The family of this 150-nucleotide RNA from Canis lupus is "U4 spliceosomal RNA". A search with the family's covariance model found it, with a score of 70 bits. NCBI's taxonomy places the organism under Eukaryota, Sarcopterygii, Dipnotetrapodomorpha, Caniformia, Canis lupus. On this family, see Zwieb, Nucleic Acids Res 1997: "The uRNA database". The base pairs follow the family's consensus structure, which is taken from published work.
[Rfam]
RNA sequence: AGCUUUGCACAAGUGGCAGUAUCGAAGCCAAUGAGGUUUAUCUGAGGCACGAUUAUUGCUAAUUGAAAACUGAACUAGUGUCUUUGAUUAGAUACUAAAUGUGUAGAUAGAUCACAUACUUUCUGGGCUUUCUUGAUAUUCUUAGAAGAA
Numbered sequence: 001a002g003c004u005u006u007g008c009a010c011a012a013g014u015g016g017c018a019g020u021a022u023c024g025a026a027g028c029c030a031a032u033g034a035g036g037u038u039u040a041u042c043u044g045a046g047g048c049a050c051g052a053u054u055a056u057u058g059c060u061a062a063u064u065g066a067a068a069a070c071u072g073a074a075c076u077a078g079u080g081u082c083u084u085u086g087a088u089u090a091g092a093u094a095c096u097a098a099a100u101g102u103g104u105a106g107a108u109a110g111a112u113c114a115c116a117u118a119c120u121u122u123c124u125g126g127g128c129u130u131u132c133u134u135g136a137u138a139u140u141c142u143u144a145g146a147a148g149a150a
Base pairs, nucleotide, nucleotide: 021053022052023051024050027048028047029046035043036042095126096125097124098122099121101119102118103117104116106113107112139150140149141148142147